S10-Clostridia ribosomal protein leader: an 84-nucleotide sequence from Garciella nitratireducens. Rfam classes the family as a cis-regulatory leader. Lineage of the source: Bacteria > Bacillati > Bacillota > Eubacteriales > Garciella nitratireducens. On this family, see Eckert and Weinberg, BMC Microbiol 2020: "Discovery of 20 novel ribosomal leader candidates in bacteria and archaea".

[Rfam]
Nucleotides: 084
Stems, first nucleotide, its partner, number of pairs: 014052003018049004025041005060082003065079001067077002
Number, partner (000 for none) and nucleotide at each position: 001000g002000a003000c004000a005000u006000g007000c008000g009000a010000u011000g012000a013000u014052g015051u016050g017000a018049a019048a020047g021046g022000u023000u024000g025041c026040c027039u028038a029037a030000c031000a032000a033000u034000u035000a036000u037029u038028u039027a040026g041025g042000g043000g044000a045000a046021u047020u048019u049018u050016c051015a052014c053000g054000g055000a056000g057000a058000a059000u060082g061081u062080c063000c064000g065079g066000a067077u068076c069000u070000u071000g072000a073000a074000u075000c076068g077067g078000g079065c080062g081061a082060c083000u084000g